[Rfam]
RNA: c-di-AMP riboswitch aptamer (ydaO/yuaA leader)
RNA sequence: ACCAUUCAACCGCUGAGUCCAUCUGGAGCGGGGGAACCAAACCCUUUGGGGUGAAUCCUUCGGCAUAUGCCCUGGUAGGGAGAGCUCUUCACAGUCCCGAACCCGUCAGCUAACCUCGCAAGCGUUGAAGAGGAGUGGU
Numbered sequence: 001a002c003c004a005u006u007c008a009a010c011c012g013c014u015g016a017g018u019c020c021a022u023c024u025g026g027a028g029c030g031g032g033g034g035a036a037c038c039a040a041a042c043c044c045u046u047u048g049g050g051g052u053g054a055a056u057c058c059u060u061c062g063g064c065a066u067a068u069g070c071c072c073u074g075g076u077a078g079g080g081a082g083a084g085c086u087c088u089u090c091a092c093a094g095u096c097c098c099g100a101a102c103c104c105g106u107c108a109g110c111u112a113a114c115c116u117c118g119c120a121a122g123c124g125u126u127g128a129a130g131a132g133g134a135g136u137g138g139u
Stems, first nucleotide, its partner, number of pairs: 011124004018027003028119006038048002049104003057075002078098004